[Rfam]
RNA: eL15-Euryarchaeota ribosomal protein leader
RNA sequence: CCUGUCAUCGACAGGACGGAAUGUGGCCGGACUCCCGGCUGAACCACCCA
Number, nucleotide and partner (000 for none) at each position: 001c015002c014003u013004g012005u011006c000007a000008u000009c000010g000011a005012c004013a003014g002015g001016a000017c000018g045019g044020a000021a000022u000023g000024u000025g040026g039027c038028c037029g036030g000031a000032c000033u000034c000035c000036c029037g028038g027039c026040u025041g000042a000043a000044c019045c018046a000047c000048c000049c000050a000